[Rfam]
RNA sequence: GAAGGAUUUGGCCCUUCGGAGUCGCCCUGCGGGGGGAGGCUCCAAACCGCCUCGUGCUGCGUUGGCUGAAGACCGUCGUGGUGAGCGAUCGAGGAAAAGGCGCCUUAGAGGUGUCAGGU
Numbered sequence: 001g002a003a004g005g006a007u008u009u010g011g012c013c014c015u016u017c018g019g020a021g022u023c024g025c026c027c028u029g030c031g032g033g034g035g036g037a038g039g040c041u042c043c044a045a046a047c048c049g050c051c052u053c054g055u056g057c058u059g060c061g062u063u064g065g066c067u068g069a070a071g072a073c074c075g076u077c078g079u080g081g082u083g084a085g086c087g088a089u090c091g092a093g094g095a096a097a098a099g100g101c102g103c104c105u106u107a108g109a110g111g112u113g114u115c116a117g118g119u
Stems, first nucleotide, its partner, number of pairs: 001017005018043006025036004048118001050094005055088001056082002059079003063075003099115006
Description: The record is a 119-nucleotide RNA sequence from Streptomyces spiralis, which matches "Group II catalytic intron D1-D4-2" in Rfam. Rfam's curators write: Group II introns are found in rRNA, tRNA and mRNA of organelles in fungi, plants and protists, and also in mRNA in bacteria. NCBI's taxonomy places the organism under Bacteria, Bacillati, Actinomycetota, Kitasatosporales, Streptomyces. The family has 144 seed sequences and 1,231 matches in Rfam 15.1. The match comes from Rfam's covariance-model search (99 bits). The literature on the family includes a 2001 paper in Trends Genet by Bonen and Vogel, "The ins and outs of group II introns".